mir-2240 microRNA precursor family: a 96-nucleotide RNA from Pristionchus pacificus. Gene Ontology terms of the family: miRNA-mediated post-transcriptional gene silencing and RISC complex. The base pairs follow the family's consensus structure, which was predicted with RNAalifold.

[Rfam]
RNA sequence: GCUACUCGACACGUCCCAAAUCCUCAUGAAUCCCGGUUUUGAUCACUAGUUGCAGUGAUCACCGGGAUUCUAUGAAGAUCUGGGCUUCGAGAAGGC
Numbered sequence: 001g002c003u004a005c006u007c008g009a010c011a012c013g014u015c016c017c018a019a020a021u022c023c024u025c026a027u028g029a030a031u032c033c034c035g036g037u038u039u040u041g042a043u044c045a046c047u048a049g050u051u052g053c054a055g056u057g058a059u060c061a062c063c064g065g066g067a068u069u070c071u072a073u074g075a076a077g078a079u080c081u082g083g084g085c086u087u088c089g090a091g092a093a094g095g096c
Stems, first nucleotide, its partner, number of pairs: 001096003005091004013085001015084004020079003025074004029069009041060006